Record summary: The family of this 76-nucleotide RNA sequence from Echinops telfairi is "Small nucleolar RNA SNORD69". Lineage of the source: Eukaryota > Metazoa > Vertebrata > Eutheria > Echinops. The family's RNA type in Rfam is C/D-box small nucleolar RNA. Its family is annotated with RNA processing and nucleolus in the Gene Ontology. Pairs were carried over by alignment from the consensus structure. On this family, see Huttenhofer et al., EMBO J 2001: "RNomics: an experimental approach that identifies 201 candidates for novel, small, non-messenger RNAs in mouse". From the family's description: snoRNA HBII-210 belongs to the C/D family of snoRNAs. It is the human orthologue of the mouse MBII-210 and is predicted to guide the 2'O-ribose methylation of large 28S rRNA on residue G4464.
RNA sequence: GAUGUGAAGCAGUGAUGAGAAACUGGAUCUGACUGGCUGUGCUGAGUUUGUUCAAUCCAACCCUGAGCUUCACGUU
Numbered sequence: 001g002a003u004g005u006g007a008a009g010c011a012g013u014g015a016u017g018a019g020a021a022a023c024u025g026g027a028u029c030u031g032a033c034u035g036g037c038u039g040u041g042c043u044g045a046g047u048u049u050g051u052u053c054a055a056u057c058c059a060a061c062c063c064u065g066a067g068c069u070u071c072a073c074g075u076u
Stems, first nucleotide, its partner, number of pairs: 001076010